[Rfam]
A member of the RNA family "Glycine riboswitch aptamer" from Bacillus thermotolerans, 91 nucleotides long. Taxonomically the source falls in Bacillus (Bacteria, Bacillati, Bacillota, Bacilli). It scores 68 bits against the family's covariance model.
RNA sequence: AUGAAGGCAAGGGGAGAGACUGUUUAACGGCGCCGAAGGAGCAAGCAACCUUUUUUGUGAAUCUCUCAGGCAAAAGAACUCUUGCUGGACG
Number, nucleotide and partner (000 for none) at each position: 001a000002u000003g000004a000005a000006g086007g085008c084009a083010a082011g081012g080013g079014g000015a000016g000017a000018g000019a000020c030021u029022g028023u000024u000025u000026a000027a000028c022029g021030g020031c000032g071033c070034c069035g067036a066037a000038g000039g065040a064041g063042c000043a000044a000045g058046c057047a056048a055049c000050c000051u000052u000053u000054u000055u048056u047057g046058u045059g000060a000061a000062u000063c041064u040065c039066u036067c035068a000069g034070g033071c032072a000073a000074a000075a000076g000077a000078a000079c013080u012081c011082u010083u009084g008085c007086u006087g000088g000089a000090c000091g000